[Rfam]
Nucleotides: 121
Base pairs, nucleotide, nucleotide: 002061003060004058006056007055017045018044021041022040023039024038025037026036068114069113070112071111073105074104075102076099077098078097079096083094084093085092
Number, partner (000 for none) and nucleotide at each position: 001000g002061u003060u004058g005000a006056a007055g008000a009000a010000c011000c012000a013000a014000g015000a016000a017045g018044g019000g020000u021041g022040a023039g024038u025037c026036u027000g028000a029000u030000g031000a032000a033000g034000c035000a036026a037025g038024a039023c040022u041021u042000u043000g044018c045017u046000g047000a048000u049000a050000c051000a052000u053000c054000c055007c056006u057000c058004c059000u060003a061002g062000a063000c064000a065000a066000a067000g068114g069113g070112g071111u072000g073105g074104g075102u076099u077098u078097c079096u080000u081000a082000u083094u084093g085092g086000a087000g088000a089000a090000a091000c092085c093084c094083a095000c096079a097078g098077g099076g100000u101000g102075g103000a104074c105073u106000g107000u108000a109000c110000u111071a112070c113069c114068c115000a116000a117000c118000a119000u120000u121000a